This 80-nucleotide RNA sequence from Aphanothece sacrum belongs to the Rfam family "Cyano-1 RNA". The family has 265 seed sequences and 283 matches in Rfam 15.1.
[Rfam]
RNA sequence: GGGUGUGUGAGGAGUAAGAACGAAAGACAAACGCCCUUGGAGUCGAAACAUGGCCAGACUUCCGAGGGCUUUUUCCUUUU
Numbered sequence: 001g002g003g004u005g006u007g008u009g010a011g012g013a014g015u016a017a018g019a020a021c022g023a024a025a026g027a028c029a030a031a032c033g034c035c036c037u038u039g040g041a042g043u044c045g046a047a048a049c050a051u052g053g054c055c056a057g058a059c060u061u062c063c064g065a066g067g068g069c070u071u072u073u074u075c076c077u078u079u080u
Base pairs, nucleotide, nucleotide: 026075027074029072030071034068035067039063040062041061042059043058044057